Plastid-rpl16 group II-D1 intron: a 47-nucleotide RNA sequence from Carnegiea gigantea. Rfam links the family to the GO term Group II intron splicing. Rfam describes the family as follows. Plastid-rpl16 is a non-coding RNA (ncRNA) recognised in plastids. It was recognised in and intronic region of a ribosome rpl16 gene. The source organism's lineage runs through Eukaryota, Streptophyta, Mesangiospermae, eudicotyledons and Carnegiea. Rfam 15.1 lists 1,446 matches to the family in 693 species. For this family Rfam cites "Retrograde signaling in plants: A critical review focusing on the GUN pathway and beyond" (Richter et al., Plant Commun, 2023). The base pairs follow the family's consensus structure, which was predicted with LocARNA.
[Rfam]
RNA sequence: AAGAGCCUUAAGCCAAUAAAGACUAAAAAGGUUGGCUCAAGAACAAA
Numbered sequence: 001a002a003g004a005g006c007c008u009u010a011a012g013c014c015a016a017u018a019a020a021g022a023c024u025a026a027a028a029a030g031g032u033u034g035g036c037u038c039a040a041g042a043a044c045a046a047a
Stems, first nucleotide, its partner, number of pairs: 007041002011037007